[Rfam]
RNA sequence: AAUAUACCUCGUUAGGUGAGGCUCCUGUACGGAGAAAUGCUGCUGCCCAAAAAUGUCCAAAGACGCCAAUGGGUCAACAGGAAUUAUCGACAUAAGGUAAUUCUUAACGUAGCUGGUUUUAGAACCUAUGCCGUACAGUGCUAAAGCUCUACGAAUGGAGGGUAUGA
Numbered sequence: 001a002a003u004a005u006a007c008c009u010c011g012u013u014a015g016g017u018g019a020g021g022c023u024c025c026u027g028u029a030c031g032g033a034g035a036a037a038u039g040c041u042g043c044u045g046c047c048c049a050a051a052a053a054u055g056u057c058c059a060a061a062g063a064c065g066c067c068a069a070u071g072g073g074u075c076a077a078c079a080g081g082a083a084u085u086a087u088c089g090a091c092a093u094a095a096g097g098u099a100a101u102u103c104u105u106a107a108c109g110u111a112g113c114u115g116g117u118u119u120u121a122g123a124a125c126c127u128a129u130g131c132c133g134u135a136c137a138g139u140g141c142u143a144a145a146g147c148u149c150u151a152c153g154a155a156u157g158g159a160g161g162g163u164a165u166g167a
Base pairs, nucleotide, nucleotide: 007161008160009159010158011152012151013095015148016147017146020142021141022140025138026137027136028135029134030133031132032131039113040112041111042110043109045074046073047072048071049070054065055064056063057062080104081103082102083101086098087097088096115126116125117124
Background
The family of this 167-nucleotide sequence from Priestia filamentosa is "M-box riboswitch aptamer (ykoK leader)". Lineage of the source: Bacteria > Bacillota > Bacilli > Bacillaceae > Priestia. M-box riboswitch, also know as ykoK leader is described as a metaloregulatory RNA that sense divalent metals and function as a genetic control element of genes related to divalent metal transport in bacteria. Rfam 15.1 lists 1,095 matches to the family in 932 species. Pairs were carried over by alignment from the consensus structure. For this family Rfam cites "Structure and mechanism of a metal-sensing regulatory RNA" (Dann CE 3rd et al., Cell, 2007).